[Rfam]
c-di-AMP riboswitch aptamer (ydaO/yuaA leader): a 207-nucleotide sequence from Paenibacillus pini. NCBI's taxonomy places the organism under Bacteria, Bacillota, Caryophanales, Paenibacillaceae, Paenibacillus pini.

Nucleotides: 207
Stems, first nucleotide, its partner, number of pairs: 011191004018038007040185005049105001106171003114145004148165004
Number, partner (000 for none) and nucleotide at each position: 001000a002000u003000u004000u005000a006000c007000u008000g009000a010000u011191c012190g013189c014188u015000g016000a017000a018038u019037u020036u021035u022034c023033a024032c025000u026000a027000g028000g029000a030000a031000c032024g033023u034022g035021a036020a037019a038018a039000u040185c041184g042183g043182g044181g045000g046000a047000a048000c049105c050000a051000a052000u053000c054000g055000u056000g057000u058000g059000c060000a061000a062000a063000g064000c065000a066000u067000u068000g069000a070000a071000c072000c073000g074000g075000u076000g077000u078000g079000a080000g081000a082000g083000u084000c085000g086000g087000g088000a089000c090000g091000c092000u093000g094000c095000u096000a097000u098000u099000g100000c101000c102000a103000c104000a105049g106171g107170g108169g109000u110000g111000a112000a113000u114145c115144u116143c117142a118000g119000a120000c121000c122000g123000g124000g125000g126000c127000c128000a129000u130000a131000a132000a133000a134000c135000c136000g137000c138000c139000g140000g141000c142117u143116g144115a145114g146000u147000a148165g149164a150163g151162c152000g153000a154000c155000u156000c157000u158000c159000a160000c161000c162151g163150c164149u165148c166000g167000a168000a169108u170107c171106c172000g173000u174000c175000a176000g177000c178000u179000a180000a181044c182043c183042u184041c185040g186000u187000a188014a189013g190012c191011g192000u193000a194000g195000a196000u197000u198000g199000a200000g201000a202000g203000a204000g205000g206000a207000a